This 146-nucleotide RNA from Aquamicrobium lusatiense belongs to the Rfam family "speF leader".
The literature on the family includes a 2012 paper in RNA Biol by del Val et al., "A survey of sRNA families in alpha-proteobacteria".
It scores 92 bits against the family's covariance model.
Taxonomically the source falls in Aquamicrobium (Bacteria, Alphaproteobacteria, Hyphomicrobiales, Phyllobacteriaceae).
This family is a putative regulatory RNA structure that is found upstream of the speF gene encoding ornithine decarboxylase in Agrobacterium tumefaciens and other alpha-proteobacteria.

[Rfam]
RNA sequence: UGCCGAUCGUCCAUAGAUCGGGGUUACUGAAGAGGCACACCUUCAUUGCCGGCAGUGCGGUUGGGAAUUCCCAUCCAAGCCAAGGCAGACAAAGCGAGCCGAAGCCGGGCAAGGCUUCAGCUCACCGCCGCGGAAAGGCGUUUCGG
Numbered sequence: 001u002g003c004c005g006a007u008c009g010u011c012c013a014u015a016g017a018u019c020g021g022g023g024u025u026a027c028u029g030a031a032g033a034g035g036c037a038c039a040c041c042u043u044c045a046u047u048g049c050c051g052g053c054a055g056u057g058c059g060g061u062u063g064g065g066a067a068u069u070c071c072c073a074u075c076c077a078a079g080c081c082a083a084g085g086c087a088g089a090c091a092a093a094g095c096g097a098g099c100c101g102a103a104g105c106c107g108g109g110c111a112a113g114g115c116u117u118c119a120g121c122u123c124a125c126c127g128c129c130g131c132g133g134a135a136a137g138g139c140g141u142u143u144c145g146g
Stems, first nucleotide, its partner, number of pairs: 001023001003021006034050004057128003080088001098110003